This 128-nucleotide RNA from Clostridium luticellarii belongs to the Rfam family "Ribosomal protein L20 leader".

[Rfam]
RNA sequence: UUCGUCAAGCAGAAACUAGCCGUUUCUCACCUUACGGCAUGGCCAGUAAGGUUAUAGAAGUUUUAUUGUAAAUUUUCUAUUGUAUGUAUUUAGAGGACGGCAGAAGUCGUCCUUUUUCAUAUUUUUUG
Numbered sequence: 001u002u003c004g005u006c007a008a009g010c011a012g013a014a015a016c017u018a019g020c021c022g023u024u025u026c027u028c029a030c031c032u033u034a035c036g037g038c039a040u041g042g043c044c045a046g047u048a049a050g051g052u053u054a055u056a057g058a059a060g061u062u063u064u065a066u067u068g069u070a071a072a073u074u075u076u077c078u079a080u081u082g083u084a085u086g087u088a089u090u091u092a093g094a095g096g097a098c099g100g101c102a103g104a105a106g107u108c109g110u111c112c113u114u115u116u117u118c119a120u121a122u123u124u125u126u127u128g
Stems, first nucleotide, its partner, number of pairs: 011027006029052003034047002037043002092115010

Description
It scores 62 bits against the family's covariance model. The family's RNA type in Rfam is cis-regulatory leader. This family is a putative r-protein leader autoregulatory structure found in B. subtilis and other low-GC Gram-positive bacteria. It is located in the 5' untranslated regions of mRNAs encoding initiation factor 3 followed by ribosomal proteins L35 and L20 (infC-rpmI-rplT). NCBI's taxonomy places the organism under Bacteria, Bacillati, Eubacteriales, Clostridiaceae, Clostridium.